let-7 microRNA precursor family: an 83-nucleotide RNA sequence from Monodelphis domestica. This family represents the microRNAs (miRNA) let-7 and mir-98. let-7 was identified from a study of developmental timing in C. elegans, and was later shown to be part of a much larger class of non-coding RNAs termed miRNAs. It scores 72 bits against the family's covariance model.
[Rfam]
RNA sequence: UUGGGGUGAGGUAGUAGGUUGUAUAGUUUGGGGGUCGCUCCCUCUGUCUGUGAGAUAACUAUACAGUCUACUGUCUUUCCCGA
Dot-bracket structure: ((((((.((((((((((((((((((((....(((.....)))....(......)...))))))))))))))))))))))))))